[Rfam]
RNA: Glutamine riboswitch aptamer (glnA leader)
RNA sequence: UACGUUCAACCUUAUGGUCGGAAGUAAGCUUGUAGCUGAAGGAACGCAAA
Numbered sequence: 001u002a003c004g005u006u007c008a009a010c011c012u013u014a015u016g017g018u019c020g021g022a023a024g025u026a027a028g029c030u031u032g033u034a035g036c037u038g039a040a041g042g043a044a045c046g047c048a049a050a
Stems, first nucleotide, its partner, number of pairs: 003046005009018003021047001027037003